Notes
A member of the RNA family "Plant small nucleolar RNA U3" from Zingiber officinale, 219 nucleotides long. Pairs were carried over by alignment from the consensus structure, which is taken from published work. It is annotated as a C/D-box small nucleolar RNA. The literature on the family includes a 2010 paper in RNA Biol by Marz and Stadler, "Comparative analysis of eukaryotic U3 snoRNA". Rfam links the family to the GO terms RNA processing and nucleolus. A search with the family's covariance model found it, with a score of 146 bits. The family is grouped with related families in Rfam's "U3 clan". About the family: Small nucleolar RNAs (snoRNAs) are involved in the processing and modification of rRNA in the nucleolus. There are two main classes of snoRNAs: the box C/D class, and the box H/ACA class.

RNA sequence: UCGACCUUACUUGAACAGGAUCUGUUCUAUAGGCUCGUACCACUGUAUCCUUGAGUGUUAAGGAGACAGGCAACCCUAUCUGGAUGAUGAUGUAAAGAUUCAAGAUCAGAGUGUGAUUAACGGCUUAGAUUCUCUAAGAUCGGAGGCUGUGGAGGAUCGUUCUCAGCAGAUCUCUACUCCUGAUGGGGGUGGUCUGGUCUCGAGUCUGUCUGACAGAUC
Dot-bracket structure: .((.(((.....((((((...))))))...))).).).....((((.((((((.....)))))).))))........(((((..............(((((.((((((.((((......(((((((.(((........)))..))))))).......)))).....(....................)......)))))).))))).......))))).